A member of the RNA family "Potassium channel RNA editing signal" from Melopsittacus undulatus, 114 nucleotides long.
NCBI's taxonomy places the organism under Eukaryota, Gnathostomata, Sauria, Archelosauria, Melopsittacus.
It is annotated as a cis-regulatory element.
The family has 85 seed sequences and 14,095 matches in Rfam 15.1.
A search with the family's covariance model found it, with a score of 96 bits.
[Rfam]
RNA sequence: UUAGGGUAUGGGGAUAUGUACCCCAUGACGUGGUCCGGGAUGCUGGUGGGUGCGCUCUGUGCCCUGGCCGGGGUGCUGACCAUCGCCAUGCCGGUGCCGGUCAUCGUCAACAAC
Numbered sequence: 001u002u003a004g005g006g007u008a009u010g011g012g013g014a015u016a017u018g019u020a021c022c023c024c025a026u027g028a029c030g031u032g033g034u035c036c037g038g039g040a041u042g043c044u045g046g047u048g049g050g051u052g053c054g055c056u057c058u059g060u061g062c063c064c065u066g067g068c069c070g071g072g073g074u075g076c077u078g079a080c081c082a083u084c085g086c087c088a089u090g091c092c093g094g095u096g097c098c099g100g101u102c103a104u105c106g107u108c109a110a111c112a113a114c
Base pairs, nucleotide, nucleotide: 002113004111008107009106010105011104013102014101015100018097019096020095021094037077038076040074049063050062051061